The family of this 201-nucleotide sequence from Medicago truncatula is "MIR2670 microRNA precursor family".
The organism belongs to Medicago, within Eukaryota.

RNA sequence: UAGGGGUAAAAUAGUGAGUAGCCGACUUGAGAAAGUGAUGAACCAUUGGGAUAAGAUUAAAUUUACUUUUUUUUACCCCCAAAUUUUUUUUACCGUGGGUAAAAAGAAUCUUCUUAGGGUAUAAAAAGAACCAGAUUUAAAUUUAGCCCAAAGGUUAAUGAUAUAUUUUCCCCAAGAAAGCUGCUCACUAUUUUACCCCAA
Number, nucleotide and partner (000 for none) at each position: 001u000002a000003g199004g198005g197006g196007u195008a194009a193010a192011a191012u190013a189014g188015u187016g186017a185018g184019u183020a182021g181022c180023c000024g000025a000026c176027u175028u174029g173030a000031g171032a000033a169034a168035g167036u000037g000038a162039u161040g000041a159042a155043c154044c153045a000046u151047u150048g149049g148050g147051a000052u145053a144054a143055g142056a000057u140058u139059a138060a137061a136062u135063u134064u133065a000066c000067u130068u129069u128070u127071u126072u125073u124074u121075a120076c119077c118078c117079c000080c000081a114082a000083a000084u000085u000086u106087u105088u104089u103090u102091u101092a100093c099094c098095g000096u000097g000098g094099g093100u092101a091102a090103a089104a088105a087106g086107a000108a000109u000110c000111u000112u000113c000114u081115u000116a000117g078118g077119g076120u075121a074122u000123a000124a073125a072126a071127a070128g069129a068130a067131c000132c000133a064134g063135a062136u061137u060138u059139a058140a057141a000142u055143u054144u053145a052146g000147c050148c049149c048150a047151a046152a000153g044154g043155u042156u000157a000158a000159u041160g000161a039162u038163a000164u000165a000166u000167u035168u034169u033170c000171c031172c000173c029174a028175a027176g026177a000178a000179a000180g022181c021182u020183g019184c018185u017186c016187a015188c014189u013190a012191u011192u010193u009194u008195a007196c006197c005198c004199c003200a000201a000

The match comes from Rfam's covariance-model search (179 bits).